[Rfam]
RNA sequence: AGCACAAAUGAUGAUUUUAAGGGACUUAAUGCUGAAGCAUGAUGUUACUUUAAGCAGAAACUGAUGUGC
Numbered sequence: 001a002g003c004a005c006a007a008a009u010g011a012u013g014a015u016u017u018u019a020a021g022g023g024a025c026u027u028a029a030u031g032c033u034g035a036a037g038c039a040u041g042a043u044g045u046u047a048c049u050u051u052a053a054g055c056a057g058a059a060a061c062u063g064a065u066g067u068g069c
Base pairs, nucleotide, nucleotide: 002069003068004067005066006065

This 69-nucleotide sequence from Crypturellus undulatus belongs to the Rfam family "Small nucleolar RNA SNORD82".
On this family, see Galardi et al., Mol Cell Biol 2002: "Purified box C/D snoRNPs are able to reproduce site-specific 2'-O-methylation of target RNA in vitro".
The family's RNA type in Rfam is C/D-box small nucleolar RNA.
Its family is annotated with nucleolus and RNA processing in the Gene Ontology.
A search with the family's covariance model found it, with a score of 66 bits.
Rfam 15.1 lists 649 matches to the family in 590 species.
snoRNA U82 or Z25 is found in both humans and mice.